[Rfam]
RNA sequence: UAAUCGACAACGCUGAAUUUCCGAACAGGAAAACGGGGGAACCAACGGCAUGUCAAGUCCUUCCGAAGCCGCGCGCUUCAAGGCUUGCCAUCAGGGGUGAAUCGCGGGCGGAGGCGCAUGGCCUCGCGUCCCGGGUAGGGCGGCUCUCAUGUCCGAAUCCGACAGCUAACCUCGUAAGCGACCGAGAGAGGCGAC
Numbered sequence: 001u002a003a004u005c006g007a008c009a010a011c012g013c014u015g016a017a018u019u020u021c022c023g024a025a026c027a028g029g030a031a032a033a034c035g036g037g038g039g040a041a042c043c044a045a046c047g048g049c050a051u052g053u054c055a056a057g058u059c060c061u062u063c064c065g066a067a068g069c070c071g072c073g074c075g076c077u078u079c080a081a082g083g084c085u086u087g088c089c090a091u092c093a094g095g096g097g098u099g100a101a102u103c104g105c106g107g108g109c110g111g112a113g114g115c116g117c118a119u120g121g122c123c124u125c126g127c128g129u130c131c132c133g134g135g136u137a138g139g140g141c142g143g144c145u146c147u148c149a150u151g152u153c154c155g156a157a158u159c160c161g162a163c164a165g166c167u168a169a170c171c172u173c174g175u176a177a178g179c180g181a182c183c184g185a186g187a188g189a190g191g192c193g194a195c
Stems, first nucleotide, its partner, number of pairs: 011180004018032003033175006043094001095160003103135001105133004138154004
A member of the RNA family "c-di-AMP riboswitch aptamer (ydaO/yuaA leader)" from Paenibacillus sp. UNC496MF, 195 nucleotides long. This family represents a conserved RNA structure found upstream of the ydaO and yuaA genes in Bacillus subtilis and related genes in other bacteria. The organism belongs to Paenibacillus, within Bacteria. Gene Ontology terms of the family: cyclic-di-AMP binding and regulation of gene expression.